[Rfam]
RNA sequence: AGUCUGACGCCUUGUUCUGUUGACGUUGUCAGCAACAUACCCAGGUAGUCCCGGCCUUUAAGACUACGGCGCGACUUGUCGUGCUAGCCAUUAUCCGCUCCGACGCUUUUCGCGCCUUGUUACUCACCCCUCAAGGGCAUCUUCCCUUGCAGGGC
Numbered sequence: 001a002g003u004c005u006g007a008c009g010c011c012u013u014g015u016u017c018u019g020u021u022g023a024c025g026u027u028g029u030c031a032g033c034a035a036c037a038u039a040c041c042c043a044g045g046u047a048g049u050c051c052c053g054g055c056c057u058u059u060a061a062g063a064c065u066a067c068g069g070c071g072c073g074a075c076u077u078g079u080c081g082u083g084c085u086a087g088c089c090a091u092u093a094u095c096c097g098c099u100c101c102g103a104c105g106c107u108u109u110u111c112g113c114g115c116c117u118u119g120u121u122a123c124u125c126a127c128c129c130c131u132c133a134a135g136g137g138c139a140u141c142u143u144c145c146c147u148u149g150c151a152g153g154g155c
Stems, first nucleotide, its partner, number of pairs: 013037002016034001019033006045067006053089003068085007125154001132149006